Shown here is an 82-nucleotide RNA from Pleuronectes platessa, a member of the family "mir-181 microRNA precursor family". Rfam links the family to the GO terms miRNA-mediated post-transcriptional gene silencing and RISC complex.
[Rfam]
RNA sequence: UCGCACCAGUGAACAUUCAACGCUGUCGGUGAGUUUCUACCAAAUUGAAAACCAUCGACCGUUGAUUGUGCCCUGUGGCCAG
Numbered sequence: 001u002c003g004c005a006c007c008a009g010u011g012a013a014c015a016u017u018c019a020a021c022g023c024u025g026u027c028g029g030u031g032a033g034u035u036u037c038u039a040c041c042a043a044a045u046u047g048a049a050a051a052c053c054a055u056c057g058a059c060c061g062u063u064g065a066u067u068g069u070g071c072c073c074u075g076u077g078g079c080c081a082g
Stems, first nucleotide, its partner, number of pairs: 001082001003080001004078001007075002014068002017065006025059007033052004